[Rfam]
RNA sequence: AACUAUUCUCAGGGCGGGGUGCAACUCCCCACCGGCGGUAAAUCUCAUCGAGAUGAGCCCGCGAGCGCUCGAUGUUUCGAGGUCAGCAGAUCUGGUGAGAAACCAGAGCCGACGGUUAUAGUCCGGAUGAAAGAGAAUAAGA
Numbered sequence: 001a002a003c004u005a006u007u008c009u010c011a012g013g014g015c016g017g018g019g020u021g022c023a024a025c026u027c028c029c030c031a032c033c034g035g036c037g038g039u040a041a042a043u044c045u046c047a048u049c050g051a052g053a054u055g056a057g058c059c060c061g062c063g064a065g066c067g068c069u070c071g072a073u074g075u076u077u078c079g080a081g082g083u084c085a086g087c088a089g090a091u092c093u094g095g096u097g098a099g100a101a102a103c104c105a106g107a108g109c110c111g112a113c114g115g116u117u118a119u120a121g122u123c124c125g126g127a128u129g130a131a132a133g134a135g136a137a138u139a140a141g142a
Stems, first nucleotide, its partner, number of pairs: 004139007017029003031122002033111002035062004057109002065087002091107005113125003
The family of this 142-nucleotide RNA sequence from Vibrio aquimaris is "FMN riboswitch aptamer (RFN element)".
It scores 122 bits against the family's covariance model.